[Rfam]
RNA sequence: CUACUCUCUCCGUCUCAUAAUAUAAGAGUGUUUUUCGCACUACAUUAGUGUUAAAAAUGCUCUUAUAUUAUGAGACGGAGGGAGUAU
Numbered sequence: 001c002u003a004c005u006c007u008c009u010c011c012g013u014c015u016c017a018u019a020a021u022a023u024a025a026g027a028g029u030g031u032u033u034u035u036c037g038c039a040c041u042a043c044a045u046u047a048g049u050g051u052u053a054a055a056a057a058u059g060c061u062c063u064u065a066u067a068u069u070a071u072g073a074g075a076c077g078g079a080g081g082g083a084g085u086a087u
Base pairs, nucleotide, nucleotide: 003085004084005083007081008080009079010078011077013075014074015073016072017071019069020068021067022066023065024064025063026062027061028060029059030058031057032056033055034054035053037051038050039049040048041047

A member of the RNA family "MIR1120/MIR1122 microRNA precursor family" from Triticum urartu, 87 nucleotides long. A search with the family's covariance model found it, with a score of 94 bits. The source organism's lineage runs through Eukaryota, Streptophyta, Liliopsida, Pooideae and Triticum.